nhaA-I RNA: a 51-nucleotide RNA. Rfam's curators write: Acidobacteria, Alphaproteobacteria, Betaproteobacteria and Gammaproteobacteria, Verrucomicrobia, cand. division NC10.
RNA sequence: GGGUGCAGCAGGAAGUCUGUUGCAGGAUAACGGGUGGUCGGGCCGCCACAC
Numbered sequence: 001g002g003g004u005g006c007a008g009c010a011g012g013a014a015g016u017c018u019g020u021u022g023c024a025g026g027a028u029a030a031c032g033g034g035u036g037g038u039c040g041g042g043c044c045g046c047c048a049c050a051c
Base pairs, nucleotide, nucleotide: 005023006022007021008020009019010018011017032051034049035048036047037046038045
The sequence is in the family's curated seed alignment.